RNA: pan motif
Organism: Planococcus salinus
RNA sequence: CGGGCAGUAUCACAGGUGAACUGCACCGGCGAAAGGCAAUACAGCGACAAUUUCAUAUGUACGAUUUCUGCCUUGAUCUUUUAAAAUGACAGGGACGGAGGA
Numbered sequence: 001c002g003g004g005c006a007g008u009a010u011c012a013c014a015g016g017u018g019a020a021c022u023g024c025a026c027c028g029g030c031g032a033a034a035g036g037c038a039a040u041a042c043a044g045c046g047a048c049a050a051u052u053u054c055a056u057a058u059g060u061a062c063g064a065u066u067u068c069u070g071c072c073u074u075g076a077u078c079u080u081u082u083a084a085a086a087u088g089a090c091a092g093g094g095a096c097g098g099a100g101g102a
Base pairs, nucleotide, nucleotide: 001028002027003026004024005023006022007021008020010019011018068098069097070096071094072093073092074091075090077089078088